[Rfam]
RNA sequence: UAGAAAUAAAAGAUGUCAUUUCGUAUAACUGCAGGAAUAGGGCCUGCGAGUCUCUACCAAGCUACCGUAAAUAGCUUGACUACGAAAAAUCAGGUACUCUUC
Dot-bracket structure: ..................(((((((....((((((.......)))))).........(((((((.......)))))))..)))))))...............
Numbered sequence: 001u002a003g004a005a006a007u008a009a010a011a012g013a014u015g016u017c018a019u020u021u022c023g024u025a026u027a028a029c030u031g032c033a034g035g036a037a038u039a040g041g042g043c044c045u046g047c048g049a050g051u052c053u054c055u056a057c058c059a060a061g062c063u064a065c066c067g068u069a070a071a072u073a074g075c076u077u078g079a080c081u082a083c084g085a086a087a088a089a090u091c092a093g094g095u096a097c098u099c100u101u102c
Stems, first nucleotide, its partner, number of pairs: 019087007030048006058078007
Rfam assigns this 102-nucleotide sequence from Alkalihalophilus pseudofirmus to the family "Purine riboswitch aptamer". Clan: Purine riboswitches. Pairs were carried over by alignment from the consensus structure, which is taken from published work. Taxonomically the source falls in Alkalihalophilus pseudofirmus (Bacteria, Bacillati, Bacilli, Caryophanales).